[Rfam]
RNA sequence: GUUGCUUCUUUGAAAGGUGCACGGCCAUUUUACCAGUUGGUCAGUCGUGUCAUUGAAGUAUAUAUCAAAGAAAUUGCCAGUAUUAAACAGCAUAAUGUUCUACUGUUUCAUUGUGUUACCCGUCUCCUGGCAAACAU
Numbered sequence: 001g002u003u004g005c006u007u008c009u010u011u012g013a014a015a016g017g018u019g020c021a022c023g024g025c026c027a028u029u030u031u032a033c034c035a036g037u038u039g040g041u042c043a044g045u046c047g048u049g050u051c052a053u054u055g056a057a058g059u060a061u062a063u064a065u066c067a068a069a070g071a072a073a074u075u076g077c078c079a080g081u082a083u084u085a086a087a088c089a090g091c092a093u094a095a096u097g098u099u100c101u102a103c104u105g106u107u108u109c110a111u112u113g114u115g116u117u118a119c120c121c122g123u124c125u126c127c128u129g130g131c132a133a134a135c136a137u
Base pairs, nucleotide, nucleotide: 003060004059005058006057007056008055018047019046021045022044023042024041025040026039027038076131077130078129079128080127082125089117090116091115093113094112095111096110097109
RNA: small nucleolar RNA snoR137
Organism: Actinidia chinensis